[Rfam]
RNA sequence: CUUGAUCGAGCCCAGCCACAGCGGCCGCUCGCGAUCCUGGCCAUACGUCGCGAGCAGCGCCUGGGCUUC
Numbered sequence: 001c002u003u004g005a006u007c008g009a010g011c012c013c014a015g016c017c018a019c020a021g022c023g024g025c026c027g028c029u030c031g032c033g034a035u036c037c038u039g040g041c042c043a044u045a046c047g048u049c050g051c052g053a054g055c056a057g058c059g060c061c062u063g064g065g066c067u068u069c
Stems, first nucleotide, its partner, number of pairs: 015025003028065003032059002037054002041050001043048001
Dot-bracket structure: ..............(((.....)))..(((.((...((..(.(....).)..))...))...)))....
Overview:
The record is a 69-nucleotide RNA from Actinomadura macrotermitis, which matches "ASpks TB sRNA" in Rfam. The base pairs follow the family's consensus structure, which is taken from published work. It scores 72 bits against the family's covariance model.